[Rfam]
The record is a 208-nucleotide sequence from Romboutsia weinsteinii, which matches "raiA RNA" in Rfam. A search with the family's covariance model found it, with a score of 180 bits. It is annotated as a riboswitch.
RNA sequence: GAUAUUUAGGUCUGUGGUUGAAAGUCCAAGCCAGACGCAGGCAAAGGGAUCCACGUAAGUUAACACUAAAAAUUGAGUUGAUGAUCAUGGUGCGUCUUAGAAGUAAGCCCUACCGGUAAUAAAAUCGAGAGAGAGUAGUAGUGCGGCGAACCCAAGCGAACCCUCCAGUAGGCGAGUGUGGGGGCAAAGACCAGGUCAGCUAAAUAUC
Numbered sequence: 001g002a003u004a005u006u007u008a009g010g011u012c013u014g015u016g017g018u019u020g021a022a023a024g025u026c027c028a029a030g031c032c033a034g035a036c037g038c039a040g041g042c043a044a045a046g047g048g049a050u051c052c053a054c055g056u057a058a059g060u061u062a063a064c065a066c067u068a069a070a071a072a073u074u075g076a077g078u079u080g081a082u083g084a085u086c087a088u089g090g091u092g093c094g095u096c097u098u099a100g101a102a103g104u105a106a107g108c109c110c111u112a113c114c115g116g117u118a119a120u121a122a123a124a125u126c127g128a129g130a131g132a133g134a135g136u137a138g139u140a141g142u143g144c145g146g147c148g149a150a151c152c153c154a155a156g157c158g159a160a161c162c163c164u165c166c167a168g169u170a171g172g173c174g175a176g177u178g179u180g181g182g183g184g185c186a187a188a189g190a191c192c193a194g195g196u197c198a199g200c201u202a203a204a205u206a207u208c
Stems, first nucleotide, its partner, number of pairs: 001208009012199003015193005028179001030177001031041001033097007050090002055085001058082001060080001062078001088186001109172005114127004131165003135162001141157002